This 105-nucleotide RNA sequence from Megaselia scalaris belongs to the Rfam family "mir-282 microRNA precursor family". On this family, see Li et al., BMC Genomics 2009: "Direct sequencing and expression analysis of a large number of miRNAs in Aedes aegypti and a multi-species survey of novel mosquito miRNAs". Gene Ontology terms of the family: RISC complex and miRNA-mediated post-transcriptional gene silencing. Rfam 15.1 lists 136 matches to the family in 128 species. The match comes from Rfam's covariance-model search (74 bits). The source organism's lineage runs through Eukaryota, Opisthokonta, Endopterygota, Eremoneura and Megaselia.
[Rfam]
RNA sequence: CGGGUGUUUGAAUCUAGCCUCUACUAGGCUUUGUCUGUGUUUUGGAUUACUUACAACUUGUUAUCGUCAGACAUAGCCUGAAAGAGGUUAGGUGAAAAGCCUAUU
Numbered sequence: 001c002g003g004g005u006g007u008u009u010g011a012a013u014c015u016a017g018c019c020u021c022u023a024c025u026a027g028g029c030u031u032u033g034u035c036u037g038u039g040u041u042u043u044g045g046a047u048u049a050c051u052u053a054c055a056a057c058u059u060g061u062u063a064u065c066g067u068c069a070g071a072c073a074u075a076g077c078c079u080g081a082a083a084g085a086g087g088u089u090a091g092g093u094g095a096a097a098a099g100c101c102u103a104u105u
Stems, first nucleotide, its partner, number of pairs: 012093009027078004032073005